[Rfam]
RNA sequence: AUCCUAUACAGAUGUAUUCAACGCUAGCCAGUUGAGCAUUUCCCUUUAGGAUUAAGUUUAUCAGAAGCUCUGACAACAACUCUUAUUGUGUGGCUGUGGCGCUGUGGUUACAGUUGAAAUGGGAUGAGUUAGGGUGGAAUAGGUUAACCGUAAGACCUUGGGUUGAAAAAUUCUAAAUUGGAGCUAGAGAUAUGGAUUUCUUAAAUUUUGUAUUUUCUGGUUACGGCGAG
Dot-bracket structure: ((((((.(.((((((..((((((.....).)))))))))))...).))))))..............((((((((......(((((((....((.((((((......)))))).))..)))))))...)))))))).....(((((..[[[[[[))))).(((((....))))).....]....(((((((((((((..........)))))).))))))).]]]]]....